[Rfam]
RNA sequence: AUACCUUGCUCUUCGCCUUGUGGUGUUGAACAAGCUUCCUCUCGUCUACCAGAGAUGGACUGCAUGAGAGACGACAGCGCAAUUUUUGAGAAUGUAUUUUGUUUGUGCGAUUUUGCCCUCCGUGGCUGCUUCGUCAGCUCGCUGGAGAGGAUACAAAAACUAGUCCUAGUU
Numbered sequence: 001a002u003a004c005c006u007u008g009c010u011c012u013u014c015g016c017c018u019u020g021u022g023g024u025g026u027u028g029a030a031c032a033a034g035c036u037u038c039c040u041c042u043c044g045u046c047u048a049c050c051a052g053a054g055a056u057g058g059a060c061u062g063c064a065u066g067a068g069a070g071a072c073g074a075c076a077g078c079g080c081a082a083u084u085u086u087u088g089a090g091a092a093u094g095u096a097u098u099u100u101g102u103u104u105g106u107g108c109g110a111u112u113u114u115g116c117c118c119u120c121c122g123u124g125g126c127u128g129c130u131u132c133g134u135c136a137g138c139u140c141g142c143u144g145g146a147g148a149g150g151a152u153a154c155a156a157a158a159a160c161u162a163g164u165c166c167u168a169g170u171u
Stems, first nucleotide, its partner, number of pairs: 006033003010029002015024003037074002039070005044060003049054001092164002094160002097158006116150002118147004128135001
Dot-bracket structure: .....(((.((...(((....)))...)).)))...((((((((((..(....)...))).....)))))..)).................((((.((((((.............((((((......(......)........)))).))..))))))))..)).......